Notes:
The record is a 142-nucleotide sequence from Enterobacteriaceae bacterium strain FGI 57, which matches "sraL Hfq binding RNA" in Rfam. About the family: The SraL RNA ('sra' for small RNA), discovered in E. coli, and later in Salmonella Tiphimurium. NCBI's taxonomy places the organism under Bacteria, Pseudomonadati, Pseudomonadota, Gammaproteobacteria, Enterobacteriaceae. On this family, see Argaman et al., Curr Biol 2001: "Novel small RNA-encoding genes in the intergenic regions of Escherichia coli". It is annotated as a small RNA. It scores 133 bits against the family's covariance model. The family's consensus secondary structure was predicted with RNAalifold. Its family is annotated with negative regulation of gene expression in the Gene Ontology.

RNA sequence: GUCAGCACAAACCGGAACCUCCAACCCGUAGCUCGACCGAGGGAUGCUGAUGUCGGGGGAAACCCUCCCAUGAACCAGUGGGAUAGAGCGAAAGACAAAGACCGGAACAUACGAAAGCGCCCAGUUGUGGCGCUUUCGUUUU
Numbered sequence: 001g002u003c004a005g006c007a008c009a010a011a012c013c014g015g016a017a018c019c020u021c022c023a024a025c026c027c028g029u030a031g032c033u034c035g036a037c038c039g040a041g042g043g044a045u046g047c048u049g050a051u052g053u054c055g056g057g058g059g060a061a062a063c064c065c066u067c068c069c070a071u072g073a074a075c076c077a078g079u080g081g082g083a084u085a086g087a088g089c090g091a092a093a094g095a096c097a098a099a100g101a102c103c104g105g106a107a108c109a110u111a112c113g114a115a116a117g118c119g120c121c122c123a124g125u126u127g128u129g130g131c132g133c134u135u136u137c138g139u140u141u142u
Stems, first nucleotide, its partner, number of pairs: 002050006014022002032041003052096003056065003066083006109141001111139011